[Rfam]
RNA sequence: UUCGGGCGUGGUAGCGGCCGCCUGUAACCCAAACGCGGGGGAAGGAAGAUGAGGAUGUGGGGCGUCGGGGACAGGACCUGCGGAGACAUGUGGAGGGCCUGUCCACUCCAAGCGCGGAGUCGGCAGCGGGAUCUCGCCGGAGGGUGAGGUUUCGCUGGCGAUAGUGAGGGGGACAUCGCGUCAGGCGGGCAACCGAGCAGCGUUCAUUCCCCGCUCUGUGCAGUGGAGGGAUAGCGGGCCUGAAUGUUCAGCGCAGAUCAUCCUGCUCGGCAUGCAGCUGCAAACCCAUCUUCCCU
Numbered sequence: 001u002u003c004g005g006g007c008g009u010g011g012u013a014g015c016g017g018c019c020g021c022c023u024g025u026a027a028c029c030c031a032a033a034c035g036c037g038g039g040g041g042a043a044g045g046a047a048g049a050u051g052a053g054g055a056u057g058u059g060g061g062g063c064g065u066c067g068g069g070g071a072c073a074g075g076a077c078c079u080g081c082g083g084a085g086a087c088a089u090g091u092g093g094a095g096g097g098c099c100u101g102u103c104c105a106c107u108c109c110a111a112g113c114g115c116g117g118a119g120u121c122g123g124c125a126g127c128g129g130g131a132u133c134u135c136g137c138c139g140g141a142g143g144g145u146g147a148g149g150u151u152u153c154g155c156u157g158g159c160g161a162u163a164g165u166g167a168g169g170g171g172g173a174c175a176u177c178g179c180g181u182c183a184g185g186c187g188g189g190c191a192a193c194c195g196a197g198c199a200g201c202g203u204u205c206a207u208u209c210c211c212c213g214c215u216c217u218g219u220g221c222a223g224u225g226g227a228g229g230g231a232u233a234g235c236g237g238g239c240c241u242g243a244a245u246g247u248u249c250a251g252c253g254c255a256g257a258u259c260a261u262c263c264u265g266c267u268c269g270g271c272a273u274g275c276a277g278c279u280g281c282a283a284a285c286c287c288a289u290c291u292u293c294c295c296u
Base pairs, nucleotide, nucleotide: 001042002041003040004023005022006021007020008019028039029038030037044294045293046292047291048290049289050288051287053285056282057281058280059279060278065270066269067268068267069266072265073264074263075262076258078256079255080254081253082252085248086247087246088245089244091242095241096240097239098238099237100236101235102234103230104229106228107227108226109225110224112221113220114219115218116217117216118215119214120213121160122159124157125156126155127154128153129152130151131150132149133148134147135146136145137144138143161165168211169210170209171208172207178203179202180201181200186195187194188193